[Rfam]
RNA sequence: GGUUUCCAUUGGUGAAAAUCCCUCAAUUUAAGAUGAGAAAAAAUUCCCCAUUGGUAUCAAAUGGUUAUCUAUUAAGCGGGGAAAAUCCUAUU
Numbered sequence: 001g002g003u004u005u006c007c008a009u010u011g012g013u014g015a016a017a018a019u020c021c022c023u024c025a026a027u028u029u030a031a032g033a034u035g036a037g038a039a040a041a042a043a044u045u046c047c048c049c050a051u052u053g054g055u056a057u058c059a060a061a062u063g064g065u066u067a068u069c070u071a072u073u074a075a076g077c078g079g080g081g082a083a084a085a086u087c088c089u090a091u092u
Stems, first nucleotide, its partner, number of pairs: 012020001046081004050072002053069004058064001

The record is a 92-nucleotide RNA from Apterosperma oblata, which matches "Plastid-rps12 3UTR RNA" in Rfam. Pairs were carried over by alignment from the consensus structure, which was predicted with LocARNA. The source organism's lineage runs through Eukaryota, Viridiplantae, Euphyllophyta, Ericales and Apterosperma. Rfam classes the family as a cis-regulatory element.